[Rfam]
RNA sequence: AACACACAACAGCUGAGUUCGCGCACCUGAGAUGGGCGUGAAGCGGAGGACCCAAUCUAUUUGGGGUGAGUUCUGCCGUGCGUCAGGCAGAAGGGGUGAAGAUUCUCUCUUGCCACCCUAACCCGUCAGCUAACUUCGUAAGCUGCUGCGAGAGAGGUC
Numbered sequence: 001a002a003c004a005c006a007c008a009a010c011a012g013c014u015g016a017g018u019u020c021g022c023g024c025a026c027c028u029g030a031g032a033u034g035g036g037c038g039u040g041a042a043g044c045g046g047a048g049g050a051c052c053c054a055a056u057c058u059a060u061u062u063g064g065g066g067u068g069a070g071u072u073c074u075g076c077c078g079u080g081c082g083u084c085a086g087g088c089a090g091a092a093g094g095g096g097u098g099a100a101g102a103u104u105c106u107c108u109c110u111u112g113c114c115a116c117c118c119u120a121a122c123c124c125g126u127c128a129g130c131u132a133a134c135u136u137c138g139u140a141a142g143c144u145g146c147u148g149c150g151a152g153a154g155a156g157g158u159c
Base pairs, nucleotide, nucleotide: 011144012143013142014141018042019041020040021039022038023037024036043139044138045137046136047135048134053063054062064124065123066122072091073090074089075088076087077086094118095117096116097115
The family of this 159-nucleotide RNA from Tumebacillus flagellatus is "c-di-AMP riboswitch aptamer (ydaO/yuaA leader)". A search with the family's covariance model found it, with a score of 75 bits. Taxonomically the source falls in Tumebacillus (Bacteria, Bacillota, Caryophanales, Alicyclobacillaceae). Rfam links the family to the GO terms regulation of gene expression and cyclic-di-AMP binding.